[Rfam]
RNA sequence: CGCCCGGCCGGAUCCCGUGGGGGGAAUCCGCACCGGGGCUAGGGAAGCGCUCCACCAGCCGGC
Numbered sequence: 001c002g003c004c005c006g007g008c009c010g011g012a013u014c015c016c017g018u019g020g021g022g023g024g025a026a027u028c029c030g031c032a033c034c035g036g037g038g039c040u041a042g043g044g045a046a047g048c049g050c051u052c053c054a055c056c057a058g059c060c061g062g063c
Stems, first nucleotide, its partner, number of pairs: 001061002003037005009030005014024003042052003

A member of the RNA family "Streptomyces RNA 2736" from Streptomyces indicus, 63 nucleotides long.
Identified by deep sequencing of transcriptome at the end of exponential growth phase. Appears smaller on northern blot than sequencing transcript. This indicates processing step. Streptomyces specific.
The base pairs follow the family's consensus structure.
It scores 67 bits against the family's covariance model.
Rfam classes the family as a small RNA.
On this family, see Vockenhuber et al., RNA Biol 2011: "Deep sequencing-based identification of small non-coding RNAs in Streptomyces coelicolor".